[Rfam]
RNA sequence: CAUGAAGACGAACCUUAUUCUUGUAGUAGGAAGGCGCAUGGGCAAGGCGGUGUAACCGCCAGGCGAAAAGCACCCAUGCGCGACACCAGGCUCCCCGAAGGGAGCCUUUUUUGUUUCCAAAA
Dot-bracket structure: ........(................)..((((.(((((((((...(((((.....)))))..((.....)).))))))))).......(((((((....)))))))........))))....